A member of the RNA family "Actino-pnp RNA" from Nocardia pseudobrasiliensis, 69 nucleotides long.
Rfam classes the family as a cis-regulatory element.
It scores 56 bits against the family's covariance model.
Pairs were carried over by alignment from the consensus structure, which is taken from published work.
[Rfam]
Nucleotides: 069
Base pairs, nucleotide, nucleotide: 001069003067004066005065006064007063009061010060011059012058013057017053018052019051020050021049022048023047024046025045026044027043028042
Number, partner (000 for none) and nucleotide at each position: 001069g002000u003067c004066g005065g006064u007063c008000u009061u010060c011059g012058g013057u014000a015000g016000u017053g018052g019051u020050c021049u022048u023047u024046c025045g026044g027043c028042g029000c030000c031000a032000a033000g034000a035000g036000g037000u038000g039000u040000u041000c042028c043027g044026c045025c046024g047023g048022a049021g050020g051019g052018c053017u054000u055000c056000g057013a058012u059011c060010g061009a062000u063007g064006a065005c066004c067003g068000c069001c